Guanidine-II riboswitch aptamer (mini-ykkC): a 45-nucleotide sequence from Pseudooceanicola marinus. Gene Ontology term of the family: regulation of gene expression. The organism belongs to Pseudooceanicola, within Bacteria.
RNA sequence: GCGUCGGGACGACCCGGCGCCUGGUUCUCAUCCCGGGACGGCCCG
Numbered sequence: 001g002c003g004u005c006g007g008g009a010c011g012a013c014c015c016g017g018c019g020c021c022u023g024g025u026u027c028u029c030a031u032c033c034c035g036g037g038a039c040g041g042c043c044c045g
Base pairs, nucleotide, nucleotide: 001020002019003018004017005016006015007014008013034045035044036043037042